The family of this 519-nucleotide part of an RNA from Meloidogyne artiellia is "Eukaryotic large subunit ribosomal RNA". The sequence is in the family's curated seed alignment.
RNA sequence: UAGAAUAAUGUAGGUAAGGGAAGUCGGCAAAUUAGAUUCGUAACUUCGGGAAAAGAAUUGGCUCUAAAGGUUGGGCCAAUCGGGUUGUUUGUGUGAAACAUGUGGCCGUUGCCCGUGGCUGCGUGUGCUUUUCCGGUAACGGGGCGGCGCUCGUGGACUAGUGGUGAUAGCUGGCGUGGAGCGCUUCAGCUAUGUGCCAGCCGCAAGGUUGGUACGUCGAUUGGCACCGAACAACCAGUUUAGAACUGGCACGAACUCCGGGAAUCCGACUGUCUCAAUUAAAACAGAGGAGACGGAUGUCCUUGCAGGACGUUGACCGAGUCUGAUUUCUGCCCAGUGCUCUGAAUGUUAAGCCAAGGAAACUUGAUUAAGCGCGGUAACGGCGGAGUAACUAUGACUCUCUUAAGGUAGCCAAAUCCGUCGUCGGCUAACUACCACGCGCACGAAUGGAUCAACGAGAUUCCCACUGUCCCUAUCUACUAUCUAGCGAAACCACAGCCAAGGGAACGGGCUUGGCAA
Numbered sequence: 001u002a003g004a005a006u007a008a009u010g011u012a013g014g015u016a017a018g019g020g021a022a023g024u025c026g027g028c029a030a031a032u033u034a035g036a037u038u039c040g041u042a043a044c045u046u047c048g049g050g051a052a053a054a055g056a057a058u059u060g061g062c063u064c065u066a067a068a069g070g071u072u073g074g075g076c077c078a079a080u081c082g083g084g085u086u087g088u089u090u091g092u093g094u095g096a097a098a099c100a101u102g103u104g105g106c107c108g109u110u111g112c113c114c115g116u117g118g119c120u121g122c123g124u125g126u127g128c129u130u131u132u133c134c135g136g137u138a139a140c141g142g143g144g145c146g147g148c149g150c151u152c153g154u155g156g157a158c159u160a161g162u163g164g165u166g167a168u169a170g171c172u173g174g175c176g177u178g179g180a181g182c183g184c185u186u187c188a189g190c191u192a193u194g195u196g197c198c199a200g201c202c203g204c205a206a207g208g209u210u211g212g213u214a215c216g217u218c219g220a221u222u223g224g225c226a227c228c229g230a231a232c233a234a235c236c237a238g239u240u241u242a243g244a245a246c247u248g249g250c251a252c253g254a255a256c257u258c259c260g261g262g263a264a265u266c267c268g269a270c271u272g273u274c275u276c277a278a279u280u281a282a283a284a285c286a287g288a289g290g291a292g293a294c295g296g297a298u299g300u301c302c303u304u305g306c307a308g309g310a311c312g313u314u315g316a317c318c319g320a321g322u323c324u325g326a327u328u329u330c331u332g333c334c335c336a337g338u339g340c341u342c343u344g345a346a347u348g349u350u351a352a353g354c355c356a357a358g359g360a361a362a363c364u365u366g367a368u369u370a371a372g373c374g375c376g377g378u379a380a381c382g383g384c385g386g387a388g389u390a391a392c393u394a395u396g397a398c399u400c401u402c403u404u405a406a407g408g409u410a411g412c413c414a415a416a417u418c419c420g421u422c423g424u425c426g427g428c429u430a431a432c433u434a435c436c437a438c439g440c441g442c443a444c445g446a447a448u449g450g451a452u453c454a455a456c457g458a459g460a461u462u463c464c465c466a467c468u469g470u471c472c473c474u475a476u477c478u479a480c481u482a483u484c485u486a487g488c489g490a491a492a493c494c495a496c497a498g499c500c501a502a503g504g505g506a507a508c509g510g511g512c513u514u515g516g517c518a519a
Stems, first nucleotide, its partner, number of pairs: 001486004010480007018472003035059005044049001060247002063244006069236005075225009084190003091185001099178004103173004108168006114161001117158001119156005125150005248252001260465007267457002271286003289324003294319003299311004328451003332384003337381002341377002344375001347374003355366004385401005403407001423438002426436002499516005
Lineage of the source: Eukaryota > Ecdysozoa > Nematoda > Meloidogynidae > Meloidogyne. The base pairs follow the family's consensus structure, which is taken from published work.